The record is a 73-nucleotide sequence from Chryseobacterium hagamense, which matches "Fluoride riboswitch aptamer (crcB RNA motif)" in Rfam.
A search with the family's covariance model found it, with a score of 48 bits.
Gene Ontology terms of the family: positive regulation of gene expression and response to fluoride.
Taxonomically the source falls in Chryseobacterium (Bacteria, Bacteroidota, Flavobacteriia, Weeksellaceae).
The base pairs follow the family's consensus structure, which is taken from published work.
[Rfam]
RNA sequence: CCUACAAAAGGAAAUGGUGUUCUUCCUUCCCCAACCGCCUCGUUCCAAACGGGCUGAUGACGCCUGAUUAAUA
Numbered sequence: 001c002c003u004a005c006a007a008a009a010g011g012a013a014a015u016g017g018u019g020u021u022c023u024u025c026c027u028u029c030c031c032c033a034a035c036c037g038c039c040u041c042g043u044u045c046c047a048a049a050c051g052g053g054c055u056g057a058u059g060a061c062g063c064c065u066g067a068u069u070a071a072u073a
Stems, first nucleotide, its partner, number of pairs: 010026004016064006037054004